[Rfam]
RNA sequence: UGACCAUUCUAUAUUGUUGUGUAGAAUCGAGGCCAUACGGACAGCCGGGUCAAAUGCCGA
Dot-bracket structure: ((((((((((((((....)))))))))....................)))))........
Streptococcus sRNA SpF59 (ldcC RNA): a 60-nucleotide RNA.